[Rfam]
RNA sequence: AUAUUAGAUAGAGGUGCGGAUACGACAAGCACUUGCGAGCCGGCAGGCAAUGAACAAGUGUAUAAGCAAGUCCGCCGAACUGUAGUUUCAGGCAUGAUGCUAUGGUGGGUUCAUGGAGAAGAUCCAUGAAACUGUCUGCGAUAUUGUAGAUGUGCUAUCUUACUU
Number, nucleotide and partner (000 for none) at each position: 001a000002u000003a000004u000005u000006a160007g159008a158009u157010a156011g155012a000013g000014g000015u000016g075017c074018g073019g072020a071021u070022a000023c000024g067025a000026c000027a000028a000029g061030c060031a059032c058033u057034u056035g055036c000037g000038a000039g000040c000041c000042g000043g000044c000045a000046g000047g000048c000049a000050a000051u000052g000053a000054a000055c035056a034057a033058g032059u031060g030061u029062a000063u000064a000065a000066g000067c024068a000069a000070g021071u020072c019073c018074g017075c016076c000077g000078a000079a106080c105081u104082g103083u102084a101085g100086u099087u000088u097089c096090a095091g000092g000093c000094a000095u090096g089097a088098u000099g086100c085101u084102a083103u082104g081105g080106u079107g133108g132109g000110u130111u129112c128113a127114u126115g125116g124117a123118g000119a000120a000121g000122a000123u117124c116125c115126a114127u113128g112129a111130a110131a000132c108133u107134g000135u150136c149137u148138g147139c146140g145141a000142u000143a000144u000145u140146g139147u138148a137149g136150a135151u000152g000153u000154g000155c011156u010157a009158u008159c007160u006161u000162a000163c000164u000165u000
RNA: Lysine riboswitch aptamer